[Rfam]
RNA: Bacterial RNase P class A
RNA sequence: CAGGUCAGCCGGAUGGACGCGGGCGCGCGGCGCCCGAGGAAAGUCCGCACACCACAGGGCAGCAUGCCGGGUAACGCCCGGAAGCGUGUAAACGUUUGGAACAGGGCCACAGAGAGAAGACCGCUCACCUUUGGGUGAGUAAGGGUGAAAGGGUGGUGUAAGAGACCACCGGCGGGGGCAGCAAUGUCCCCGGCCAGGCAACCCCCAUGCGGUGCAAGGUCAAGCAGGAGAGAAGCUCUUUUUGGGCGGGAGCAGCCCGGCUCCCCAUCAUCUCCGGGUAGACCGCACGAGCUGGCGGGCAACCGUCAGCCCAGAUAGAUGUCCAUCCAGGCGGGUUUCCCACCGGACAGAAUGCGGCUUACAGGCUGGCCUGGUCU
Numbered sequence: 001c002a003g004g005u006c007a008g009c010c011g012g013a014u015g016g017a018c019g020c021g022g023g024c025g026c027g028c029g030g031c032g033c034c035c036g037a038g039g040a041a042a043g044u045c046c047g048c049a050c051a052c053c054a055c056a057g058g059g060c061a062g063c064a065u066g067c068c069g070g071g072u073a074a075c076g077c078c079c080g081g082a083a084g085c086g087u088g089u090a091a092a093c094g095u096u097u098g099g100a101a102c103a104g105g106g107c108c109a110c111a112g113a114g115a116g117a118a119g120a121c122c123g124c125u126c127a128c129c130u131u132u133g134g135g136u137g138a139g140u141a142a143g144g145g146u147g148a149a150a151g152g153g154u155g156g157u158g159u160a161a162g163a164g165a166c167c168a169c170c171g172g173c174g175g176g177g178g179c180a181g182c183a184a185u186g187u188c189c190c191c192g193g194c195c196a197g198g199c200a201a202c203c204c205c206c207a208u209g210c211g212g213u214g215c216a217a218g219g220u221c222a223a224g225c226a227g228g229a230g231a232g233a234a235g236c237u238c239u240u241u242u243u244g245g246g247c248g249g250g251a252g253c254a255g256c257c258c259g260g261c262u263c264c265c266c267a268u269c270a271u272c273u274c275c276g277g278g279u280a281g282a283c284c285g286c287a288c289g290a291g292c293u294g295g296c297g298g299g300c301a302a303c304c305g306u307c308a309g310c311c312c313a314g315a316u317a318g319a320u321g322u323c324c325a326u327c328c329a330g331g332c333g334g335g336u337u338u339c340c341c342a343c344c345g346g347a348c349a350g351a352a353u354g355c356g357g358c359u360u361a362c363a364g365g366c367u368g369g370c371c372u373g374g375u376c377u
Stems, first nucleotide, its partner, number of pairs: 001373010011362001012327007020036007041360003045357005050214004057258004062210005067081005082097001084095004098205002104203002106199003121144002123140007152170006172194001173192008218284004227275005249264005291310008